Rfam assigns this 450-nucleotide part of an RNA from bacterium NHP-B to the family "Bacterial large subunit ribosomal RNA".
[Rfam]
RNA sequence: CUCCGCGAAAACUAUUUAGGUAGUGCGUUGCGUGCUGACCUUUGGGGGUAGAGCACUGAAUGGGCUAGGGGGGAGCGAUCCUUACCAAACCCAAUCAAACUCCGAAUACCAAAGGGUGAAGCGCAGCAGACAGACAGUGGGUGCUAAGGUCCAUUGUCGAAAGGGAAACAGCCCAGACCGCCGUCUAAGGUCCCCAAGUUAUGUGCUAAGUGGGAAAGGAUGUGGGGCGACCAAAACAGCCAGGAGGUUGGCUUAGAAGCAGCCAUCCUUUAAAGAAAGCGUAAUAGCUCACUGGUCUAAUUAAGUUGCCCUGCGCCGAAAAUGUAACGGGGCUUAAGCCAUACACCGAAGACGCGGGCGUCAAGCUUGUUCUUGGCGCGGUAGCGGAGCGUUCCGUAGGCCGUUGAAGGAAGAUCUGUGAGGACUUCUGGAGGUAUCGGAAGUGAGGAU
Number, nucleotide and partner (000 for none) at each position: 001c389002u388003c387004c386005g385006c384007g000008a000009a000010a000011a024012c023013u022014a021015u020016u000017u000018a000019g000020g015021u014022a013023g012024u011025g000026c129027g127028u126029u125030g124031c123032g122033u121034g000035c000036u120037g117038a000039c115040c114041u113042u112043u111044g110045g109046g000047g000048g000049u000050a000051g103052a101053g100054c000055a000056c000057u097058g096059a095060a000061u093062g092063g091064g090065c000066u000067a000068g086069g085070g083071g082072g081073g080074a079075g000076c000077g000078a000079u074080c073081c072082u071083u070084a000085c069086c068087a000088a000089a000090c064091c063092c062093a061094a000095u059096c058097a057098a000099a000100c053101u052102c000103c051104g000105a000106a000107u000108a000109c045110c044111a043112a042113a041114g040115g039116g000117u037118g000119a000120a036121g033122c032123g031124c030125a029126g028127c027128a000129g026130a000131c000132a000133g158134a157135c156136a155137g154138u153139g152140g151141g150142u149143g000144c000145u000146a000147a000148g000149g142150u141151c140152c139153a138154u137155u136156g135157u134158c133159g000160a000161a000162a000163g174164g173165g172166a000167a000168a000169c000170a000171g000172c165173c164174c163175a000176g000177a000178c357179c356180g355181c354182c000183g353184u352185c351186u000187a000188a000189g347190g346191u345192c000193c000194c000195c000196a000197a000198g344199u000200u343201a342202u341203g340204u000205g339206c338207u000208a000209a000210g000211u000212g000213g000214g000215a000216a000217a000218g317219g316220a000221u000222g314223u313224g312225g311226g310227g309228c308229g307230a306231c305232c000233a000234a000235a000236a000237c000238a000239g296240c295241c294242a293243g292244g000245a269246g268247g267248u000249u000250g264251g263252c262253u000254u000255a000256g000257a000258a000259g000260c000261a000262g252263c251264c250265a000266u000267c247268c246269u245270u274271u000272a000273a000274a270275g290276a000277a000278a000279g288280c287281g000282u000283a000284a000285u000286a000287g280288c279289u000290c275291a000292c243293u242294g241295g240296u239297c000298u000299a000300a000301u000302u000303a000304a000305g231306u230307u229308g228309c227310c226311c225312u224313g223314c222315g000316c219317c218318g000319a000320a000321a000322a000323u000324g000325u000326a000327a000328c000329g000330g000331g000332g000333c000334u000335u000336a000337a000338g206339c205340c203341a202342u201343a200344c198345a191346c190347c189348g000349a000350a000351g185352a184353c183354g181355c180356g179357g178358g379359c378360g377361u376362c375363a374364a373365g372366c000367u000368u000369g000370u000371u000372c365373u364374u363375g362376g361377c360378g359379c358380g000381g000382u000383a000384g006385c005386g004387g003388a002389g001390c445391g000392u442393u441394c440395c439396g438397u000398a000399g000400g435401c434402c433403g000404u000405u000406g000407a000408a000409g429410g428411a427412a426413g425414a000415u424416c423417u422418g000419u000420g000421a000422g417423g416424a415425c413426u412427u411428c410429u409430g000431g000432a000433g402434g401435u400436a000437u000438c396439g395440g394441a393442a392443g000444u000445g390446a000447g000448g000449a000450u000